The record is a 183-nucleotide RNA from Ureibacillus endophyticus, which matches "Lysine riboswitch aptamer" in Rfam.
The match comes from Rfam's covariance-model search (115 bits).
Gene Ontology term of the family: lysine biosynthetic process.
Rfam describes the family as follows. Riboswitches are metabolite binding domains within certain messenger RNAs that serve as precision sensors for their corresponding targets.
[Rfam]
RNA sequence: UAGAAUGGUAGAGGUGCAAGGUUCAAUAGUAACUUGUUGAAGGAUGAACAAUUCCAAUGAAGACUUGCGAAAGGGUAACUUGCCGAAGCGGUGAACAAAUUGUUCGGUUUACUUGCUGGUUUUGCAUUGAAUAAAUGUAAGACUGUCAGAAUCUAAAAAUGAUUCUGGAGGGCUAUCUCAGUU
Numbered sequence: 001u002a003g004a005a006u007g008g009u010a011g012a013g014g015u016g017c018a019a020g021g022u023u024c025a026a027u028a029g030u031a032a033c034u035u036g037u038u039g040a041a042g043g044a045u046g047a048a049c050a051a052u053u054c055c056a057a058u059g060a061a062g063a064c065u066u067g068c069g070a071a072a073g074g075g076u077a078a079c080u081u082g083c084c085g086a087a088g089c090g091g092u093g094a095a096c097a098a099a100u101u102g103u104u105c106g107g108u109u110u111a112c113u114u115g116c117u118g119g120u121u122u123u124g125c126a127u128u129g130a131a132u133a134a135a136u137g138u139a140a141g142a143c144u145g146u147c148a149g150a151a152u153c154u155a156a157a158a159a160u161g162a163u164u165c166u167g168g169a170g171g172g173c174u175a176u177c178u179c180a181g182u183u
Stems, first nucleotide, its partner, number of pairs: 007177005016083005022077001024075001033067001036064003087117003090113007118144011146168007

The family's consensus secondary structure is taken from published work.